[Rfam]
RNA sequence: CCGAGGAGCAGGGCUUAGCUGCUUGUGAGCAGGGUUCCCACCAGGCGUGUUCACAGUGGCUAAGUUCCGUCCCCCGG
Numbered sequence: 001c002c003g004a005g006g007a008g009c010a011g012g013g014c015u016u017a018g019c020u021g022c023u024u025g026u027g028a029g030c031a032g033g034g035u036u037c038c039c040a041c042c043a044g045g046c047g048u049g050u051u052c053a054c055a056g057u058g059g060c061u062a063a064g065u066u067c068c069g070u071c072c073c074c075c076g077g
Stems, first nucleotide, its partner, number of pairs: 011067010025054007

The family of this 77-nucleotide RNA from Cavia porcellus is "mir-27 microRNA precursor family". NCBI's taxonomy places the organism under Eukaryota, Bilateria, Euteleostomi, Eutheria, Cavia. A search with the family's covariance model found it, with a score of 74 bits. Its family is annotated with miRNA-mediated post-transcriptional gene silencing and RISC complex in the Gene Ontology. The base pairs follow the family's consensus structure, which was predicted with RNAalifold.